[Rfam]
This 130-nucleotide RNA from Ladona fulva belongs to the Rfam family "U11 spliceosomal RNA".
The match comes from Rfam's covariance-model search (91 bits).
By type it is a spliceosomal small nuclear RNA.
RNA sequence: UAAAAGGGUGUUUGCCACUUCUAUGGCAUGCAGGUUCAUUUGAGCUUGUAGGGUAUGGCAAUCAAGACAUACUCAACACAUAAUUUUUGUAUAGAGGAGCUGUUGGCUGCCAUAGUGCACUAGCGCUCCC
Numbered sequence: 001u002a003a004a005a006g007g008g009u010g011u012u013u014g015c016c017a018c019u020u021c022u023a024u025g026g027c028a029u030g031c032a033g034g035u036u037c038a039u040u041u042g043a044g045c046u047u048g049u050a051g052g053g054u055a056u057g058g059c060a061a062u063c064a065a066g067a068c069a070u071a072c073u074c075a076a077c078a079c080a081u082a083a084u085u086u087u088u089g090u091a092u093a094g095a096g097g098a099g100c101u102g103u104u105g106g107c108u109g110c111c112a113u114a115g116u117g118c119a120c121u122a123g124c125g126c127u128c129c130c
Stems, first nucleotide, its partner, number of pairs: 008079005013028005029050009051074007097128004102124005108119003111115001